[Rfam]
RNA sequence: UCCAUCGUGAGGUGGAAUCUGAAGGAAGCCGAAGGCAAAGCACUGGCCUGACGUACAGAAACUGCAUAAGAGGCUGCCGCGUGGGAUGAGAUAGCUAUUAUCAUCAAUGUCUAAUACUUACACGGAACGCGCGGUUGUCUAUGCAGCAGGCAUAAGUGUGAAGGUGGGUGUG
Numbered sequence: 001u002c003c004a005u006c007g008u009g010a011g012g013u014g015g016a017a018u019c020u021g022a023a024g025g026a027a028g029c030c031g032a033a034g035g036c037a038a039a040g041c042a043c044u045g046g047c048c049u050g051a052c053g054u055a056c057a058g059a060a061a062c063u064g065c066a067u068a069a070g071a072g073g074c075u076g077c078c079g080c081g082u083g084g085g086a087u088g089a090g091a092u093a094g095c096u097a098u099u100a101u102c103a104u105c106a107a108u109g110u111c112u113a114a115u116a117c118u119u120a121c122a123c124g125g126a127a128c129g130c131g132c133g134g135u136u137g138u139c140u141a142u143g144c145a146g147c148a149g150g151c152a153u154a155a156g157u158g159u160g161a162a163g164g165u166g167g168g169u170g171u172g
Stems, first nucleotide, its partner, number of pairs: 001016006030170002035165002040159005046151005062146006073138002077134007084112004090105003